[Rfam]
RNA sequence: GGCCCGGCUCUUGCUGAUGUAUUUACACCGGUAGCCAACGGCGGUUGCCCCACUUAAAUCCCGACAAAGACGUCGC
Numbered sequence: 001g002g003c004c005c006g007g008c009u010c011u012u013g014c015u016g017a018u019g020u021a022u023u024u025a026c027a028c029c030g031g032u033a034g035c036c037a038a039c040g041g042c043g044g045u046u047g048c049c050c051c052a053c054u055u056a057a058a059u060c061c062c063g064a065c066a067a068a069g070a071c072g073u074c075g076c
Stems, first nucleotide, its partner, number of pairs: 030049007
RNA: narK RNA
Organism: Pseudomonas putida